[Rfam]
RNA sequence: AUCCAGAGAGAAUCGCGCAGAUUUCCUAUCUGUGAGGAAAGUCCGUGCUCGCACAGGCUGAGAUGUCUGUAGUGUUCGUGCCUAGCGAAACCGUAAGCUAGGGCAAUCUGGCGUAAGCUGGGUUGACGGCAGGGAAAGUCACCUAAGUCUAGGUCAAGCGUAAGCACUAGAUAUGGGACGAAUACCUUGAAAGUGCCACAGUGACGGAGCUUCAAAGGAAACUUUGAAGGUGGAACGAGGUAAACCCCACGAGCGAGAAACCCAAAUUUGGUAGGGGAAGUGUCUAGCGGGAAUGGAACCAACAGACACCAUGAAUCUAUUCAUGAGAUAGAUGAUUCUCCAUGUUGUGCGAGGUCAUUUGGCCGAAUGCAGCACAUCAUGAACAAAACACGGCUUAUGCGG
Numbered sequence: 001a002u003c004c005a006g007a008g009a010g011a012a013u014c015g016c017g018c019a020g021a022u023u024u025c026c027u028a029u030c031u032g033u034g035a036g037g038a039a040a041g042u043c044c045g046u047g048c049u050c051g052c053a054c055a056g057g058c059u060g061a062g063a064u065g066u067c068u069g070u071a072g073u074g075u076u077c078g079u080g081c082c083u084a085g086c087g088a089a090a091c092c093g094u095a096a097g098c099u100a101g102g103g104c105a106a107u108c109u110g111g112c113g114u115a116a117g118c119u120g121g122g123u124u125g126a127c128g129g130c131a132g133g134g135a136a137a138g139u140c141a142c143c144u145a146a147g148u149c150u151a152g153g154u155c156a157a158g159c160g161u162a163a164g165c166a167c168u169a170g171a172u173a174u175g176g177g178a179c180g181a182a183u184a185c186c187u188u189g190a191a192a193g194u195g196c197c198a199c200a201g202u203g204a205c206g207g208a209g210c211u212u213c214a215a216a217g218g219a220a221a222c223u224u225u226g227a228a229g230g231u232g233g234a235a236c237g238a239g240g241u242a243a244a245c246c247c248c249a250c251g252a253g254c255g256a257g258a259a260a261c262c263c264a265a266a267u268u269u270g271g272u273a274g275g276g277g278a279a280g281u282g283u284c285u286a287g288c289g290g291g292a293a294u295g296g297a298a299c300c301a302a303c304a305g306a307c308a309c310c311a312u313g314a315a316u317c318u319a320u321u322c323a324u325g326a327g328a329u330a331g332a333u334g335a336u337u338c339u340c341c342a343u344g345u346u347g348u349g350c351g352a353g354g355u356c357a358u359u360u361g362g363c364c365g366a367a368u369g370c371a372g373c374a375c376a377u378c379a380u381g382a383a384c385a386a387a388a389c390a391c392g393g394c395u396u397a398u399g400c401g402g
Stems, first nucleotide, its partner, number of pairs: 004402001006400001007398001008340007016034006039396003043393005048257005053070006076252005081102006103127001104125009128247002131187003139178002142176002147172006193245002195241003210229008261276003280309006310325006342380003346376005
RNA: Bacterial RNase P class B